[Rfam]
RNA sequence: UCUCCCGCUUCAUCUCCCUGAGCGGGUGCCUUGCAUCUAGGUAAGGCAUUUGGCCCCCGGCUCAUCCCUUUGCCGGGGGCUUUUUAU
Numbered sequence: 001u002c003u004c005c006c007g008c009u010u011c012a013u014c015u016c017c018c019u020g021a022g023c024g025g026g027u028g029c030c031u032u033g034c035a036u037c038u039a040g041g042u043a044a045g046g047c048a049u050u051u052g053g054c055c056c057c058c059g060g061c062u063c064a065u066c067c068c069u070u071u072g073c074c075g076g077g078g079g080c081u082u083u084u085u086a087u
Stems, first nucleotide, its partner, number of pairs: 004026006028047007054079008
Burkholderia RNA 7 (anti-hemB): an 87-nucleotide RNA from Propionivibrio dicarboxylicus. On this family, see Weinberg et al., Nucleic Acids Res 2007: "Identification of 22 candidate structured RNAs in bacteria using the CMfinder comparative genomics pipeline". Rfam links the family to the GO terms protein binding and bacterial biofilm matrix. From the family's description: This RNA motif was identified by computational search in b-proteobacteria Burkholderia. Co-purified with Hfq, expression confirmed by Northern blot. Lineage of the source: Bacteria > Pseudomonadati > Betaproteobacteria > Rhodocyclaceae > Propionivibrio. It is annotated as a small RNA. The family's consensus secondary structure is taken from published work.